[Rfam]
Nucleotides: 060
Base pairs, nucleotide, nucleotide: 001060002059003058004057005056007053008052009051010050011049012048013047014046015045016044017043018042019041020040021039022038023037024036025035026034
Number, partner (000 for none) and nucleotide at each position: 001060g002059a003058a004057g005056a006000g007053u008052a009051u010050u011049g012048c013047c014046a015045c016044c017043c018042u019041u020040u021039c022038u023037a024036g025035u026034c027000c028000c029000u030000a031000u032000u033000a034026g035025a036024c037023u038022a039021g040020a041019a042018a043017g044016g045015g046014u047013g048012g049011c050010a051009a052008u053007a054000c055000c056005u057004c058003u059002u060001c

About this RNA
Rfam assigns this 60-nucleotide RNA sequence from Homo sapiens to the family "mir-5681 microRNA precursor family". Its family is annotated with miRNA-mediated post-transcriptional gene silencing and RISC complex in the Gene Ontology. The base pairs follow the family's consensus structure, which was predicted with RNAalifold.